The record is a 119-nucleotide sequence from Mycobacterium pseudokansasii, which matches "Actinobacteria sRNA Ms_IGR-7" in Rfam. NCBI's taxonomy places the organism under Bacteria, Bacillati, Actinomycetes, Mycobacteriaceae, Mycobacterium. Pairs were carried over by alignment from the consensus structure. Rfam classes the family as a small RNA. The literature on the family includes a 2013 paper in RNA by Li et al., "Identification of small RNAs in Mycobacterium smegmatis using heterologous Hfq". The family has 14 seed sequences and 463 matches in Rfam 15.1.
RNA sequence: UGGAAGUCCACUUCCUCGAUAUGGGUUGGUUAAUUCCUGAAGACCAUCAAUCAUCGCAGCUCAGAGGACACUUUCCCAUUCCCACACCCACCACGGCGCCUAUUUAUCCGUGGAUUGAG
Numbered sequence: 001u002g003g004a005a006g007u008c009c010a011c012u013u014c015c016u017c018g019a020u021a022u023g024g025g026u027u028g029g030u031u032a033a034u035u036c037c038u039g040a041a042g043a044c045c046a047u048c049a050a051u052c053a054u055c056g057c058a059g060c061u062c063a064g065a066g067g068a069c070a071c072u073u074u075c076c077c078a079u080u081c082c083c084a085c086a087c088c089c090a091c092c093a094c095g096g097c098g099c100c101u102a103u104u105u106a107u108c109c110g111u112g113g114a115u116u117g118a119g
Base pairs, nucleotide, nucleotide: 002075003074004073005072006071007070011067012066013065014064018062019061022058023057025055027053028052029051030050034046100117102115103114104113105112106111